[Rfam]
RNA: mir-460 microRNA precursor family
Organism: Mola mola
RNA sequence: UUUUACAGUUCCUGCAUUGUACACACUGUGCGUAUGAAUUAUGUAAGCACAGCGCAUACAAUGUGGAUGCUGUGCUG
Numbered sequence: 001u002u003u004u005a006c007a008g009u010u011c012c013u014g015c016a017u018u019g020u021a022c023a024c025a026c027u028g029u030g031c032g033u034a035u036g037a038a039u040u041a042u043g044u045a046a047g048c049a050c051a052g053c054g055c056a057u058a059c060a061a062u063g064u065g066g067a068u069g070c071u072g073u074g075c076u077g
Base pairs, nucleotide, nucleotide: 012066013065015063016062017061018060019059020058021057024054026052027051028050029049030048031047